[Rfam]
RNA sequence: CUGCUUGUCAGAGUGGAUGUGAUGUGUGGGUCUGUAAAAGUCAUAUCACAGCCAGCUUUGAUGAGCGGCG
Number, nucleotide and partner (000 for none) at each position: 001c000002u000003g000004c000005u064006u063007g062008u061009c060010a059011g058012a057013g056014u054015g053016g052017a000018u050019g049020u048021g047022a046023u000024g000025u045026g044027u043028g000029g000030g000031u000032c000033u000034g000035u000036a000037a000038a000039a000040g000041u000042c000043a027044u026045a025046u022047c021048a020049c019050a018051g000052c016053c015054a014055g000056c013057u012058u011059u010060g009061a008062u007063g006064a005065g000066c000067g000068g000069c000070g000
RNA: mir-2 microRNA precursor family
Organism: Chionoecetes opilio